This 86-nucleotide RNA from Chrysochloris asiatica belongs to the Rfam family "Stem loopII regulatory element in POLB". It is annotated as a cis-regulatory element.
RNA sequence: AGUGCAGCAGAAGUCUUAAUUUAUUUCCUGAACUUUGCUAUGUAAGGGUCUCUGGUGGUUCUAGAGCACUGUUUUGUUUUUGUUUU
Numbered sequence: 001a002g003u004g005c006a007g008c009a010g011a012a013g014u015c016u017u018a019a020u021u022u023a024u025u026u027c028c029u030g031a032a033c034u035u036u037g038c039u040a041u042g043u044a045a046g047g048g049u050c051u052c053u054g055g056u057g058g059u060u061c062u063a064g065a066g067c068a069c070u071g072u073u074u075u076g077u078u079u080u081u082g083u084u085u086u
Stems, first nucleotide, its partner, number of pairs: 009079003016064003025055002031049001033047006
The organism belongs to Chrysochloris, within Eukaryota.
The family's consensus secondary structure is taken from published work.